This 81-nucleotide sequence from Castanea mollissima belongs to the Rfam family "small nucleolar RNA snoR117".
The organism belongs to Castanea, within Eukaryota.
Pairs were carried over by alignment from the consensus structure, which was predicted with RNAalifold.
By type it is a C/D-box small nucleolar RNA.
It scores 72 bits against the family's covariance model.
[Rfam]
RNA sequence: GGCCUGUGAAGCACAAAUAUUGUCCGUACCAUCUGAGAUACCCUCUUUGAUGUAUACAACUUUUUCAAUUUUCUGAGGCCU
Numbered sequence: 001g002g003c004c005u006g007u008g009a010a011g012c013a014c015a016a017a018u019a020u021u022g023u024c025c026g027u028a029c030c031a032u033c034u035g036a037g038a039u040a041c042c043c044u045c046u047u048u049g050a051u052g053u054a055u056a057c058a059a060c061u062u063u064u065u066c067a068a069u070u071u072u073c074u075g076a077g078g079c080c081u
Stems, first nucleotide, its partner, number of pairs: 001080004